[Rfam]
Nucleotides: 067
Base pairs, nucleotide, nucleotide: 008030009029010028011027012026013025014024015023035060036059037058038057039056040055041054
Number, partner (000 for none) and nucleotide at each position: 001000u002000g003000u004000c005000u006000c007000c008030u009029c010028c011027a012026g013025u014024u015023u016000u017000c018000u019000c020000a021000g022000a023015a024014g025013a026012u027011u028010g029009g030008a031000u032000u033000g034000c035060c036059g037058c038057c039056c040055g041054c042000a043000c044000c045000g046000u047000c048000a049000a050000g051000g052000u053000a054041g055040c056039g057038g058037g059036c060035g061000u062000u063000u064000u065000u066000u067000u